Record summary:
This 70-nucleotide RNA from Pan troglodytes belongs to the Rfam family "mir-619 microRNA precursor family".
RNA sequence: AAAUGCUGGGAUUACAGGCAUGAGCCACCGUGGUCGACCAUGACCUGGACAUGUUUGUGCCCAGUACUGU
Numbered sequence: 001a002a003a004u005g006c007u008g009g010g011a012u013u014a015c016a017g018g019c020a021u022g023a024g025c026c027a028c029c030g031u032g033g034u035c036g037a038c039c040a041u042g043a044c045c046u047g048g049a050c051a052u053g054u055u056u057g058u059g060c061c062c063a064g065u066a067c068u069g070u
Stems, first nucleotide, its partner, number of pairs: 004066007013059010025048003032045004
The organism belongs to Pan, within Eukaryota. Pairs were carried over by alignment from the consensus structure, which was predicted with RNAalifold. Rfam links the family to the GO terms RISC complex and miRNA-mediated post-transcriptional gene silencing.